[Rfam]
Annotation:
The family of this 80-nucleotide sequence from Hermetia illucens is "drz-agam-1 ribozyme". Its family is annotated with catalytic activity in the Gene Ontology.
RNA sequence: UACUACCAAAACUUAUCUCCACCUCCACGUGGUAAUCGCUGGGAGCUCUUUCUUAACGACGGAGUUGCAGACGGAGAAGG
Numbered sequence: 001u002a003c004u005a006c007c008a009a010a011a012c013u014u015a016u017c018u019c020c021a022c023c024u025c026c027a028c029g030u031g032g033u034a035a036u037c038g039c040u041g042g043g044a045g046c047u048c049u050u051u052c053u054u055a056a057c058g059a060c061g062g063a064g065u066u067g068c069a070g071a072c073g074g075a076g077a078a079g080g
Base pairs, nucleotide, nucleotide: 012080013079014078016076018074019073021033022032023031044066045065046064047063048062049061051059052058
Description
NCBI's taxonomy places the organism under Eukaryota, Bilateria, Protostomia, Neoptera, Hermetia. The base pairs follow the family's consensus structure, which is taken from published work.